[Rfam]
RNA sequence: GAGUCUAACGUCUAUGCGAGUGUACGGGUGGAAAACCCCUGCGCGGAAUGAAAGUAAGAGGUUGGAGCCCGCAAGGGUGCACAAUCGACCGACCUGGAAGUGCUCGGACGGGUUUGAGUAGGAGCAUAGCUGUUGGGACCCGAAAGAUGGUGAACUAUACCUGAAUAGGGUGAAGCCAGAGGAAACUCUGGUGGAGGCUCGUAGCGGUUCUGACGUGCAAAUCGAUCGUCGAAUUUGGGUAUAGGGGCGAAAGACUAAUCGAACCAUCUAGUAGCUGGUU
Numbered sequence: 001g002a003g004u005c006u007a008a009c010g011u012c013u014a015u016g017c018g019a020g021u022g023u024a025c026g027g028g029u030g031g032a033a034a035a036c037c038c039c040u041g042c043g044c045g046g047a048a049u050g051a052a053a054g055u056a057a058g059a060g061g062u063u064g065g066a067g068c069c070c071g072c073a074a075g076g077g078u079g080c081a082c083a084a085u086c087g088a089c090c091g092a093c094c095u096g097g098a099a100g101u102g103c104u105c106g107g108a109c110g111g112g113u114u115u116g117a118g119u120a121g122g123a124g125c126a127u128a129g130c131u132g133u134u135g136g137g138a139c140c141c142g143a144a145a146g147a148u149g150g151u152g153a154a155c156u157a158u159a160c161c162u163g164a165a166u167a168g169g170g171u172g173a174a175g176c177c178a179g180a181g182g183a184a185a186c187u188c189u190g191g192u193g194g195a196g197g198c199u200c201g202u203a204g205c206g207g208u209u210c211u212g213a214c215g216u217g218c219a220a221a222u223c224g225a226u227c228g229u230c231g232a233a234u235u236u237g238g239g240u241a242u243a244g245g246g247g248c249g250a251a252a253g254a255c256u257a258a259u260c261g262a263a264c265c266a267u268c269u270a271g272u273a274g275c276u277g278g279u280u
Stems, first nucleotide, its partner, number of pairs: 005136006012129006020044003026038004048055002060086005067078003088119002090116003093112003100105001139278002142275001146268006155244011166232001168200004175192007204229004209225002212223002246256002
A member of the RNA family "Eukaryotic large subunit ribosomal RNA" from Candidozyma haemuli, 280 nucleotides of a longer RNA. A search with the family's covariance model found it, with a score of 3202 bits.